Rfam assigns this 107-nucleotide sequence from Panicum virgatum to the family "Small nucleolar RNA snoR100".
Rfam classes the family as an H/ACA-box small nucleolar RNA.
On this family, see Marker et al., Curr Biol 2002: "Experimental RNomics: identification of 140 candidates for small non-messenger RNAs in the plant Arabidopsis thaliana".
RNA sequence: ACAGGAAGGAAGCAUGGUAGUGUGUACGGAGAUGGAAAGGUCUGCAUGUCUGCUUGCUGUGAUGCCUUCGGGCUUUGAUCUAGCAGGCCUGGAUUUGACCUACACAC
Numbered sequence: 001a002c003a004g005g006a007a008g009g010a011a012g013c014a015u016g017g018u019a020g021u022g023u024g025u026a027c028g029g030a031g032a033u034g035g036a037a038a039g040g041u042c043u044g045c046a047u048g049u050c051u052g053c054u055u056g057c058u059g060u061g062a063u064g065c066c067u068u069c070g071g072g073c074u075u076u077g078a079u080c081u082a083g084c085a086g087g088c089c090u091g092g093a094u095u096u097g098a099c100c101u102a103c104a105c106a107c
Base pairs, nucleotide, nucleotide: 012025013024014023015022038090039089040088041087042086048079049078050077052073053072054071